[Rfam]
RNA sequence: GGGUUAUUCCUACGCGCUUAUGCGCUGGUUUAAUAAAGAUUCGCACCUCUAUCAAACCGGAUAACCCCACCAUUUGGCAAUAGCCUUACUGUACGAUCAAGUCGGAACUAAUACAAUUAAUUGGCAACAUGCAGGCUACUCCUUUUUAAUAAUUCGUAUUUAACCUACAUCUGAAUGAUUUUCUAUCUGAUAGAAAUUCAGCUU
Numbered sequence: 001g002g003g004u005u006a007u008u009c010c011u012a013c014g015c016g017c018u019u020a021u022g023c024g025c026u027g028g029u030u031u032a033a034u035a036a037a038g039a040u041u042c043g044c045a046c047c048u049c050u051a052u053c054a055a056a057c058c059g060g061a062u063a064a065c066c067c068c069a070c071c072a073u074u075u076g077g078c079a080a081u082a083g084c085c086u087u088a089c090u091g092u093a094c095g096a097u098c099a100a101g102u103c104g105g106a107a108c109u110a111a112u113a114c115a116a117u118u119a120a121u122u123g124g125c126a127a128c129a130u131g132c133a134g135g136c137u138a139c140u141c142c143u144u145u146u147u148a149a150u151a152a153u154u155c156g157u158a159u160u161u162a163a164c165c166u167a168c169a170u171c172u173g174a175a176u177g178a179u180u181u182u183c184u185a186u187c188u189g190a191u192a193g194a195a196a197u198u199c200a201g202c203u204u
Base pairs, nucleotide, nucleotide: 001067002066003065004064005063006062007061009060010059014025015024016023017022027058028057029056030055031054033052034051035050037048038047075156076155077154081151082150086149087148091108092107094104095103096102097101110145111144115140173199174198175197179194180193181192182190183189
Background:
This 204-nucleotide RNA from Mycoavidus cysteinexigens belongs to the Rfam family "Proteobacterial sRNA psRNA2". The match comes from Rfam's covariance-model search (121 bits). The family's RNA type in Rfam is small RNA. A reference for the family is Gvakharia et al. (2010), "Computational prediction and transcriptional analysis of sRNAs in Nitrosomonas europaea", FEMS Microbiol Lett. Taxonomically the source falls in Mycoavidus (Bacteria, Pseudomonadati, Betaproteobacteria, Burkholderiales). The family has 7 seed sequences and 122 matches in Rfam 15.1.